[Rfam]
terC RNA: a 64-nucleotide RNA from Azospirillum sp. TSO22-1.

RNA sequence: GUCCGGAUCCGGGCCCCUCUGGCGGCGUGCCUUCUGCGGCACGCCGUGAUGUCGGAUCCAAAAC
Numbered sequence: 001g002u003c004c005g006g007a008u009c010c011g012g013g014c015c016c017c018u019c020u021g022g023c024g025g026c027g028u029g030c031c032u033u034c035u036g037c038g039g040c041a042c043g044c045c046g047u048g049a050u051g052u053c054g055g056a057u058c059c060a061a062a063a064c
Stems, first nucleotide, its partner, number of pairs: 006058007022047010

A search with the family's covariance model found it, with a score of 59 bits.
Rfam classes the family as a cis-regulatory element.
Taxonomically the source falls in Azospirillum (Bacteria, Pseudomonadati, Alphaproteobacteria, Rhodospirillales).